Annotation
Small nucleolar RNA psi28S-1192: a 139-nucleotide sequence from Drosophila rhopaloa. The match comes from Rfam's covariance-model search (152 bits). NCBI's taxonomy places the organism under Eukaryota, Protostomia, Ecdysozoa, Neoptera, Sophophora. The base pairs follow the family's consensus structure, which was predicted with ILM. It is annotated as an H/ACA-box small nucleolar RNA. From the family's description: psi28S-1192 is a member of the H/ACA class of snoRNA. This family is responsible for guiding the modification of uridine 1192 to pseudouridine in Drosophila 28S rRNA.
RNA sequence: AGGGGGUCCAAUCUAAUUCUGCAUCAUGGUUUAGUGAUGUAGUCUCGCUUAUGGACCAGAAAAAUCCCCAUCUUUUAUUAUCCUUGUGCUUGUGAUAAUAUCCAAGUUCAAUGCACACGAGAAACGUAAAAGAACAUAA
Numbered sequence: 001a002g003g004g005g006g007u008c009c010a011a012u013c014u015a016a017u018u019c020u021g022c023a024u025c026a027u028g029g030u031u032u033a034g035u036g037a038u039g040u041a042g043u044c045u046c047g048c049u050u051a052u053g054g055a056c057c058a059g060a061a062a063a064a065u066c067c068c069c070a071u072c073u074u075u076u077a078u079u080a081u082c083c084u085u086g087u088g089c090u091u092g093u094g095a096u097a098a099u100a101u102c103c104a105a106g107u108u109c110a111a112u113g114c115a116c117a118c119g120a121g122a123a124a125c126g127u128a129a130a131a132g133a134a135c136a137u138a139a
Stems, first nucleotide, its partner, number of pairs: 005057006019042008027033002071133008083121006